Overview: Shown here is a 65-nucleotide sequence, a member of the family "DUF3800-VIII RNA". Rfam's curators write: Bacteroidetes, Cyanobacteria, Firmicutes, Planctomycetes (1 example), Proteobacteria, Tenericutes (1 example).
RNA sequence: UUAUGCCUGCCCAGUCGAAGCCCUGCGUCCCUACGUGGGGUAUUUAGUAGGCUGGGUGGGCCGCA
Numbered sequence: 001u002u003a004u005g006c007c008u009g010c011c012c013a014g015u016c017g018a019a020g021c022c023c024u025g026c027g028u029c030c031c032u033a034c035g036u037g038g039g040g041u042a043u044u045u046a047g048u049a050g051g052c053u054g055g056g057u058g059g060g061c062c063g064c065a
Base pairs, nucleotide, nucleotide: 002065004063005062006060007059008058009057010056011055012054013053014052015051016050020041021040022039023038024037025036026035027034028033

Pairs were carried over by alignment from the consensus structure, which is taken from published work.